Rfam assigns this 168-nucleotide RNA from Enterococcus faecalis to the family "M-box riboswitch aptamer (ykoK leader)".
NCBI's taxonomy places the organism under Bacteria, Bacilli, Enterococcaceae, Enterococcus, Enterococcus faecalis.
M-box riboswitch, also know as ykoK leader is described as a metaloregulatory RNA that sense divalent metals and function as a genetic control element of genes related to divalent metal transport in bacteria. It was first reported upstream of the B.subtilis ykoK gene and genes with related functions in other bacteria.
It is one of the family's seed sequences.

[Rfam]
RNA sequence: CUGAAUAAUUGUUAGGUGAGGCUCCUAUUUGGACAAAUGCUGCUGCCGCGAAAGGAUCGAGAGACCCUUAGUUGGUUGAACAGGAAUAAUCGUGAAGGUUAUUCAUAAUGUAGCUGAUACAUGUUAUCUACGCCCUAUAGUGCUAAAGCUCAACGAUAGAGAAUCUUA
Numbered sequence: 001c002u003g004a005a006u007a008a009u010u011g012u013u014a015g016g017u018g019a020g021g022c023u024c025c026u027a028u029u030u031g032g033a034c035a036a037a038u039g040c041u042g043c044u045g046c047c048g049c050g051a052a053a054g055g056a057u058c059g060a061g062a063g064a065c066c067c068u069u070a071g072u073u074g075g076u077u078g079a080a081c082a083g084g085a086a087u088a089a090u091c092g093u094g095a096a097g098g099u100u101a102u103u104c105a106u107a108a109u110g111u112a113g114c115u116g117a118u119a120c121a122u123g124u125u126a127u128c129u130a131c132g133c134c135c136u137a138u139a140g141u142g143c144u145a146a147a148g149c150u151c152a153a154c155g156a157u158a159g160a161g162a163a164u165c166u167u168a
Base pairs, nucleotide, nucleotide: 005164006163009160010159011154012153013096015150016149017148020144021143022142025140026139027138028137031134032133039114040113041112042111043110045076046075047074048073054067055066057064058063084104085103086102089099090098091097116128117127118126